Description
The family of this 32-nucleotide sequence is "L31-Coriobacteria ribosomal protein leader". The family's consensus secondary structure is taken from published work. The literature on the family includes a 2020 paper in BMC Microbiol by Eckert and Weinberg, "Discovery of 20 novel ribosomal leader candidates in bacteria and archaea". Rfam classes the family as a cis-regulatory leader.
[Rfam]
RNA sequence: GUCUUGGUCGGAAACCAAGGCAUAGUAAGGAG
Numbered sequence: 001g002u003c004u005u006g007g008u009c010g011g012a013a014a015c016c017a018a019g020g021c022a023u024a025g026u027a028a029g030g031a032g
Stems, first nucleotide, its partner, number of pairs: 001021008